[Rfam]
RNA sequence: GUUACGGCGUGCAAGGAUCUUCCGAUCGAAAGAACCCGUCGCGAGGCGGUAGUAUGAGAUUGGUUGCCGACGUCGUAACUUACGUUUUGAAGAACGG
Numbered sequence: 001g002u003u004a005c006g007g008c009g010u011g012c013a014a015g016g017a018u019c020u021u022c023c024g025a026u027c028g029a030a031a032g033a034a035c036c037c038g039u040c041g042c043g044a045g046g047c048g049g050u051a052g053u054a055u056g057a058g059a060u061u062g063g064u065u066g067c068c069g070a071c072g073u074c075g076u077a078a079c080u081u082a083c084g085u086u087u088u089g090a091a092g093a094a095c096g097g
Stems, first nucleotide, its partner, number of pairs: 001079010015068002022063006031055001036049005083096003
A member of the RNA family "Archaeal large subunit ribosomal RNA" from Methanocorpusculum labreanum, 97 nucleotides of a longer RNA. The organism belongs to Methanocorpusculum labreanum, within Archaea.